[Rfam]
Nucleotides: 141
Base pairs, nucleotide, nucleotide: 005061006060007059008058009057010056011055021049022048023047025045026044027043028042029041030040074134075133076132077131078130079129080088081087082086104126106124
Number, partner (000 for none) and nucleotide at each position: 001000c002000g003000u004000g005061g006060u007059g008058g009057u010056g011055g012000u013000u014000u015000c016000u017000u018000u019000u020000u021049g022048g023047c024000g025045c026044a027043c028042u029041u030040g031000u032000u033000c034000a035000g036000u037000u038000u039000c040030c041029a042028a043027g044026u045025g046000g047023g048022c049021c050000u051000g052000a053000c054000u055011c056010u057009g058008c059007c060006a061005c062000a063000u064000a065000c066000a067000u068000g069000a070000c071000a072000c073000u074134g075133g076132a077131g078130c079129u080088g081087g082086c083000g084000a085000g086082g087081c088080u089000u090000g091000u092000g093000a094000c095000c096000g097000a098000g099000g100000c101000g102000u103000c104126u105000c106124u107000c108000a109000a110000g111000c112000u113000c114000u115000c116000u117000c118000u119000g120000c121000a122000c123000c124106a125000c126104a127000u128000g129079g130078g131077c132076u133075c134074c135000c136000a137000c138000a139000c140000g141000u